Rfam assigns this 88-nucleotide sequence from Ramphastos sulfuratus to the family "mir-1426 microRNA precursor family". Gene Ontology terms of the family: miRNA-mediated post-transcriptional gene silencing and RISC complex.
[Rfam]
RNA sequence: CAGGGCUGAUUCUCUUUCCUUAACUCAUGCCGCUGUGCCUUUUUGUGUGUCUCACAAUUGUGUGAGUUGAGUACAGAGUGUCAGUCCA
Numbered sequence: 001c002a003g004g005g006c007u008g009a010u011u012c013u014c015u016u017u018c019c020u021u022a023a024c025u026c027a028u029g030c031c032g033c034u035g036u037g038c039c040u041u042u043u044u045g046u047g048u049g050u051c052u053c054a055c056a057a058u059u060g061u062g063u064g065a066g067u068u069g070a071g072u073a074c075a076g077a078g079u080g081u082c083a084g085u086c087c088a
Stems, first nucleotide, its partner, number of pairs: 004086007012078002019071010034056004
Rfam 15.1 lists 326 matches to the family in 324 species.